[Rfam]
Record summary:
mir-172 microRNA precursor family: a 118-nucleotide RNA from Brassica rapa. On this family, see Jones-Rhoades and Bartel, Mol Cell 2004: "Computational Identification of Plant MicroRNAs and Their Targets, Including a Stress-Induced miRNA". About the family: mir-172 has been experimentally verified in Arabidopsis thaliana. Its family is annotated with RISC complex and miRNA-mediated post-transcriptional gene silencing in the Gene Ontology.
RNA sequence: CUUUUUGUAGGUGCAGCACCAUCAAGAUUCACAUGGAAAUUGAAAAACCCCUAAUCUUAUUAAUUAGGGUUUUGAUAUGUAUAUAUGAGAAUCUUGAUGAUGCUGCAUCAACAACAGA
Numbered sequence: 001c002u003u004u005u006u007g008u009a010g011g012u013g014c015a016g017c018a019c020c021a022u023c024a025a026g027a028u029u030c031a032c033a034u035g036g037a038a039a040u041u042g043a044a045a046a047a048c049c050c051c052u053a054a055u056c057u058u059a060u061u062a063a064u065u066a067g068g069g070u071u072u073u074g075a076u077a078u079g080u081a082u083a084u085a086u087g088a089g090a091a092u093c094u095u096g097a098u099g100a101u102g103c104u105g106c107a108u109c110a111a112c113a114a115c116a117g118a
Base pairs, nucleotide, nucleotide: 010109011108012107013106014105015104016103017102018101020099021098022097023096024095025094026093027092028091029090030089032087033086034085035084